[Rfam]
RNA sequence: CAGAAGAAUCUAUAAAGCUCAGGAGGGAUAGCACCAUGGAAUGGUGAUGAUUUUUUUCAUCCUCUCUAUAGCGCUAUCUAUCCUGAGUUUCAUGGCUUUUUCAU
Numbered sequence: 001c002a003g004a005a006g007a008a009u010c011u012a013u014a015a016a017g018c019u020c021a022g023g024a025g026g027g028a029u030a031g032c033a034c035c036a037u038g039g040a041a042u043g044g045u046g047a048u049g050a051u052u053u054u055u056u057u058c059a060u061c062c063u064c065u066c067u068a069u070a071g072c073g074c075u076a077u078c079u080a081u082c083c084u085g086a087g088u089u090u091c092a093u094g095g096c097u098u099u100u101u102c103a104u
Base pairs, nucleotide, nucleotide: 010095016089017088018087019086020085021084022083023082024081026079027078028077029076030075031074032073034071
Shown here is a 104-nucleotide RNA sequence from Camellia sinensis, a member of the family "MIR390 microRNA precursor family". Its family is annotated with RISC complex and miRNA-mediated post-transcriptional gene silencing in the Gene Ontology. The match comes from Rfam's covariance-model search (87 bits). The family has 16 seed sequences and 649 matches in Rfam 15.1.